About this RNA:
Rfam assigns this 108-nucleotide sequence from Chara braunii to the family "U5 spliceosomal RNA". The family's RNA type in Rfam is spliceosomal small nuclear RNA. About the family: U5 RNA is a component of both types of known spliceosome. The family's consensus secondary structure is taken from published work. Lineage of the source: Eukaryota > Streptophyta > Charophyceae > Characeae > Chara. The match comes from Rfam's covariance-model search (76 bits).

Nucleotides: 108
Base pairs, nucleotide, nucleotide: 003079004078005077006076008069009068011066012065013064014063015062016061017060018059029055030054031053032052033051034050035049036048
Number, partner (000 for none) and nucleotide at each position: 001000g002000a003079c004078u005077g006076c007000g008069u009068g010000u011066u012065c013064a014063g015062c016061u017060c018059a019000u020000a021000u022000g023000g024000a025000g026000c027000a028000c029055u030054a031053u032052u033051c034050u035049u036048u037000c038000g039000c040000c041000u042000u043000u044000u045000a046000c047000u048036a049035a050034a051033g052032a053031a054030u055029a056000c057000c058000g059018u060017g061016g062015g063014c064013u065012g066011g067000u068009c069008a070000c071000a072000c073000a074000c075000a076006g077005c078004a079003g080000u081000u082000u083000a084000c085000c086000u087000c088000a089000a090000u091000u092000u093000u094000u095000g096000c097000c098000g099000g100000c101000u102000c103000g104000c105000a106000g107000c108000u